RNA sequence: CUAGGGGAAGGCAUUAUUAAACUUCAAACAAAGGGGUAGCUAUAAUAGUGUUAUAGCAUGAUUGAGUUUGUACUUGUGCUAAAUUCUAGUUUUAACAUCUUCAAUAUUUAUUACUUACUUUCCUUUCUAGCCGACUAGUAGUAUCUAGUCGGUUUUUUU
Numbered sequence: 001c002u003a004g005g006g007g008a009a010g011g012c013a014u015u016a017u018u019a020a021a022c023u024u025c026a027a028a029c030a031a032a033g034g035g036g037u038a039g040c041u042a043u044a045a046u047a048g049u050g051u052u053a054u055a056g057c058a059u060g061a062u063u064g065a066g067u068u069u070g071u072a073c074u075u076g077u078g079c080u081a082a083a084u085u086c087u088a089g090u091u092u093u094a095a096c097a098u099c100u101u102c103a104a105u106a107u108u109u110a111u112u113a114c115u116u117a118c119u120u121u122c123c124u125u126u127c128u129a130g131c132c133g134a135c136u137a138g139u140a141g142u143a144u145c146u147a148g149u150c151g152g153u154u155u156u157u158u159u
Stems, first nucleotide, its partner, number of pairs: 001089005015072003019069006030126007042054002130153009
RNA S.aureus Orsay G: a 159-nucleotide sequence from Staphylococcus massiliensis. By type it is a small RNA. The base pairs follow the family's consensus structure, which is taken from published work.